[Rfam]
RNA sequence: CAGAGAGUAGUUUAUUUGAAAAUACCAGCUUUGGGAGCUGGAGAUGGAGGUUUGAGCCCUCCUUUUCUGA
Numbered sequence: 001c002a003g004a005g006a007g008u009a010g011u012u013u014a015u016u017u018g019a020a021a022a023u024a025c026c027a028g029c030u031u032u033g034g035g036a037g038c039u040g041g042a043g044a045u046g047g048a049g050g051u052u053u054g055a056g057c058c059c060u061c062c063u064u065u066u067c068u069g070a
Base pairs, nucleotide, nucleotide: 001069002068003067004066005065006064007063010023011022012021013020025041026040027039028038029037046062047061048060049059050058

Annotation: The family of this 70-nucleotide RNA is "tRNA". Rfam 15.1 lists 5,335,975 matches to the family in 14,413 species. Its family is annotated with triplet codon-amino acid adaptor activity in the Gene Ontology.